The family of this 97-nucleotide RNA sequence from Gossypium trilobum is "Plastid-rps12 3UTR RNA". A search with the family's covariance model found it, with a score of 81 bits.

RNA sequence: GGUUUUCAUUGGUACAAAUUCAAUUUUGGAAUUUAAAAUGAAAAAAAAAUUCCCCAUUAGUAGCAAAUGCUUAUCCAUUAAGCGAGGAAAAUCCUAU
Numbered sequence: 001g002g003u004u005u006u007c008a009u010u011g012g013u014a015c016a017a018a019u020u021c022a023a024u025u026u027u028g029g030a031a032u033u034u035a036a037a038a039u040g041a042a043a044a045a046a047a048a049a050u051u052c053c054c055c056a057u058u059a060g061u062a063g064c065a066a067a068u069g070c071u072u073a074u075c076c077a078u079u080a081a082g083c084g085a086g087g088a089a090a091a092u093c094c095u096a097u
Base pairs, nucleotide, nucleotide: 009023010022011021012020052087053086055084056078057077060074061073062072063071
Rfam's curators write: Plastid rpl20 is a non-coding RNA (ncRNA) recognised in plastids. NCBI's taxonomy places the organism under Eukaryota, Embryophyta, Euphyllophyta, Gunneridae, Gossypium. The base pairs follow the family's consensus structure, which was predicted with LocARNA. The literature on the family includes a 2023 paper in Plant Commun by Richter et al., "Retrograde signaling in plants: A critical review focusing on the GUN pathway and beyond".